[Rfam]
RNA sequence: UUAUCCCAGGCAUUUGGGUGCGGUCAUCCAAGGUAAGUGUGCCCAAAGGGCGCCGCCGCACCCACUCCCGCAAGGGAGUCGUGUCUGGGAGGAGGA
Numbered sequence: 001u002u003a004u005c006c007c008a009g010g011c012a013u014u015u016g017g018g019u020g021c022g023g024u025c026a027u028c029c030a031a032g033g034u035a036a037g038u039g040u041g042c043c044c045a046a047a048g049g050g051c052g053c054c055g056c057c058g059c060a061c062c063c064a065c066u067c068c069c070g071c072a073a074g075g076g077a078g079u080c081g082u083g084u085c086u087g088g089g090a091g092g093a094g095g096a
Stems, first nucleotide, its partner, number of pairs: 005089009016063009037054001039053005064079001066077004